[Rfam]
A member of the RNA family "mir-2796 microRNA precursor family" from Anopheles stephensi, 78 nucleotides long. The source organism's lineage runs through Eukaryota, Altocrustacea, Pterygota, Culicidae and Neocellia. The family has 6 seed sequences and 119 matches in Rfam 15.1. Its family is annotated with miRNA-mediated post-transcriptional gene silencing and RISC complex in the Gene Ontology.
Nucleotides: 078
Base pairs, nucleotide, nucleotide: 005074006073007072010069011068012067013066014064015063016062017061018060019059020058022056023055024054025053026052027051028050030048031047032046
Number, partner (000 for none) and nucleotide at each position: 001000c002000a003000c004000c005074g006073g007072a008000u009000g010069c011068a012067g013066g014064g015063g016062u017061u018060u019059c020058u021000u022056u023055c024054g025053g026052c027051c028050u029000c030048c031047a032046g033000c034000a035000g036000c037000a038000u039000u040000u041000g042000a043000c044000c045000g046032u047031u048030g049000u050028a051027g052026g053025c054024c055023g056022g057000c058020g059019g060018a061017a062016a063015c064014u065000a066013c067012u068011u069010g070000c071000u072007u073006c074005c075000g076000u077000c078000g